[Rfam]
RNA sequence: GCAGUCCCAUCAGGAUAAUGCCUAACCAGCAGUCCUGUAGCUAGUUCUUGGAGGUUACCCGGUAACGGAUAACAUUAAAGCGUAGAACGGCAAAAUAACGGGCCGAAAGCGAAAGCUGAAGUGAUGGAACCUCGAAAAAUAAGUGGAGACAGGCCGAUGUGGUUACACAUACAGAAGGCGAAACGCAUUCAAGCGCAAAGGUGAGUUUGAAUGGGCACUCCGGGGUCUAAGAGCU
Dot-bracket structure: ...........((((...(((.[.[[..))).)))).(.((..(.(((((((.((((.(((....))).)))).))....)).))).).)).).................................(.((((((...........(((...((((..((((........))))...)))....(.(((((((((......]].]))))))))).)).))))))))))........